[Rfam]
RNA: RAGATH-33 RNA
RNA sequence: GCUAACGGCAGUUGCGCCAUGAAAAUGGCAAGACGGGUCGGGGCUGGCAUAGAAAGGCCGGUAGGCAGUGCAGCGGAAGGUAAGAAAACCGCCAAGCGAAAUUAAGUCGGGAAAACUGAAUGAUACG
Numbered sequence: 001g002c003u004a005a006c007g008g009c010a011g012u013u014g015c016g017c018c019a020u021g022a023a024a025a026u027g028g029c030a031a032g033a034c035g036g037g038u039c040g041g042g043g044c045u046g047g048c049a050u051a052g053a054a055a056g057g058c059c060g061g062u063a064g065g066c067a068g069u070g071c072a073g074c075g076g077a078a079g080g081u082a083a084g085a086a087a088a089c090c091g092c093c094a095a096g097c098g099a100a101a102u103u104a105a106g107u108c109g110g111g112a113a114a115a116c117u118g119a120a121u122g123a124u125a126c127g
Base pairs, nucleotide, nucleotide: 006040007039008038009037011034012033013032043062044061045060046059047058048057107119108118109117110116